[Rfam]
RNA sequence: AAAAAAGUAGGGAUUUGUUGCUACUGUGAACAUGUCUCUCGUUGAUGUGAGGGAAAUUUAAGUGAGUCAUUGUUAUUGGGUGAACCUCGUUAGAUAGUUUAAUUAAUAGAAGAGGUUCAGUAAACGAUGAUACAUGC
Number, nucleotide and partner (000 for none) at each position: 001a000002a000003a000004a000005a048006a000007g046008u000009a000010g000011g037012g036013a000014u034015u000016u032017g031018u000019u000020g000021c000022u000023a000024c000025u000026g000027u000028g000029a000030a000031c017032a016033u000034g014035u000036c012037u011038c000039u000040c000041g000042u000043u000044g000045a000046u007047g000048u005049g000050a000051g000052g000053g000054a000055a000056a000057u000058u000059u000060a000061a000062g000063u000064g000065a000066g131067u130068c129069a128070u127071u126072g125073u124074u123075a000076u000077u000078g000079g000080g000081u119082g118083a117084a116085c115086c114087u113088c000089g000090u000091u000092a000093g000094a000095u000096a000097g000098u000099u000100u000101a000102a000103u000104u000105a000106a000107u000108a000109g000110a000111a000112g000113a087114g086115g085116u084117u083118c082119a081120g000121u000122a000123a074124a073125c072126g071127a070128u069129g068130a067131u066132a000133c000134a000135u000136g000137c000
The family of this 137-nucleotide RNA sequence from Papaver nudicaule is "Small nucleolar RNA snoR74". Pairs were carried over by alignment from the consensus structure, which was predicted with WAR. A reference for the family is Marker et al. (2002), "Experimental RNomics: identification of 140 candidates for small non-messenger RNAs in the plant Arabidopsis thaliana", Curr Biol. Gene Ontology terms of the family: nucleolus and RNA processing. Taxonomically the source falls in Papaver (Eukaryota, Streptophytina, Embryophyta, Tracheophyta).